[Rfam]
RNA sequence: AGCAAAGGCGUGAUUGGGUGCAGUGCUGGUGAACCUUUGAGCCAGUUUCAGACUUUCAGUCUAAUUAAUUAGCCGGCCGGCAGGUUCAUCAACGCUGCACUCAAUAAUGCCUUCC
Dot-bracket structure: .....((((((.(((((((((((((.((.(((.....................................................))).)).))))))))))))).))))))...